[Rfam]
RNA: SAM-I/IV (S-adenosyl methionine) riboswitch aptamer
Organism: Sphingopyxis witflariensis
Nucleotides: 106
Stems, first nucleotide, its partner, number of pairs: 006078005015032006033060003038056003041052003045103005080090004
Number, partner (000 for none) and nucleotide at each position: 001000a002000u003000c004000g005000a006078a007077c008076a009075u010074c011000a012000a013000g014000a015032g016031u017030u018029g019028g020027g021000g022000c023000g024000a025000c026000g027020c028019c029018c030017a031016a032015c033060g034059c035058c036000a037000a038056c039055c040054u041052g042051c043050c044000a045103a046102u047101c048100c049099g050043g051042g052041c053000a054040a055039g056038g057000u058035g059034g060033c061000a062000c063000u064000c065000c066000g067000c068000a069000a070000g071000g072000a073000g074010g075009a076008u077007g078006u079000g080090g081089c082088c083087g084000a085000g086000c087083c088082g089081g090080c091000a092000a093000c094000u095000g096000a097000a098000a099049c100048g101047g102046a103045u104000c105000a106000a